RNA sequence: AGGCGGUGAUGACAAAAAACAUUUCUCGAUGCUGAAACUUACUCGAGAGACCAAAUCACUCUUGUAAUCUUUCGUGAUGCUUGUUUUUAUGCGUGUCUGAGCCUA
Numbered sequence: 001a002g003g004c005g006g007u008g009a010u011g012a013c014a015a016a017a018a019a020c021a022u023u024u025c026u027c028g029a030u031g032c033u034g035a036a037a038c039u040u041a042c043u044c045g046a047g048a049g050a051c052c053a054a055a056u057c058a059c060u061c062u063u064g065u066a067a068u069c070u071u072u073c074g075u076g077a078u079g080c081u082u083g084u085u086u087u088u089a090u091g092c093g094u095g096u097c098u099g100a101g102c103c104u105a
Stems, first nucleotide, its partner, number of pairs: 001104004
The record is a 105-nucleotide RNA sequence, which matches "small nucleolar RNA snoR126" in Rfam. The family's RNA type in Rfam is C/D-box small nucleolar RNA. Its family is annotated with nucleolus and RNA processing in the Gene Ontology.